[Rfam]
RNA sequence: GGAAUCCCGUCCAGGUAAUCGCUAGCCACGAGCCUGGUAUCGAGCCUUGCAGGCAUAUCGGUAACGAUAUGUUUGAUGCGUAGGCACGAAAGAAAGCGAGGCGCAAAGGUAACAGGUCAUGCUGACCCUGAAGGAUCGAGUCCCGAAAUGACCGCAUUGGAUAUGGCCGAUAGUCUGUUCCUACUAGCAGGCAACAGUUGCCACGGCGCUUAGGCAAGUUGUGGCAAACAUCCCGGGAUCUAAGUCCG
Numbered sequence: 001g002g003a004a005u006c007c008c009g010u011c012c013a014g015g016u017a018a019u020c021g022c023u024a025g026c027c028a029c030g031a032g033c034c035u036g037g038u039a040u041c042g043a044g045c046c047u048u049g050c051a052g053g054c055a056u057a058u059c060g061g062u063a064a065c066g067a068u069a070u071g072u073u074u075g076a077u078g079c080g081u082a083g084g085c086a087c088g089a090a091a092g093a094a095a096g097c098g099a100g101g102c103g104c105a106a107a108g109g110u111a112a113c114a115g116g117u118c119a120u121g122c123u124g125a126c127c128c129u130g131a132a133g134g135a136u137c138g139a140g141u142c143c144c145g146a147a148a149u150g151a152c153c154g155c156a157u158u159g160g161a162u163a164u165g166g167c168c169g170a171u172a173g174u175c176u177g178u179u180c181c182u183a184c185u186a187g188c189a190g191g192c193a194a195c196a197g198u199u200g201c202c203a204c205g206g207c208g209c210u211u212a213g214g215c216a217a218g219u220u221g222u223g224g225c226a227a228a229c230a231u232c233c234c235g236g237g238a239u240c241u242a243a244g245u246c247c248g
Stems, first nucleotide, its partner, number of pairs: 012036004019031003023217001025215002038091001040089002044085004048080002050075011138240001140239006159233003164230002166192003171186004198227010
This 248-nucleotide RNA sequence from Chitinimonas sp. BJB300 belongs to the Rfam family "Group II catalytic intron D1-D4-6". Group II introns are found in rRNA, tRNA and mRNA of organelles in fungi, plants and protists, and also in mRNA in bacteria. On this family, see Chu et al., EMBO J 2001: "Control of branch-site choice by a group II intron". Lineage of the source: Bacteria > Pseudomonadota > Betaproteobacteria > Neisseriales > Chitinimonas. Rfam 15.1 lists 1,617 matches to the family in 661 species.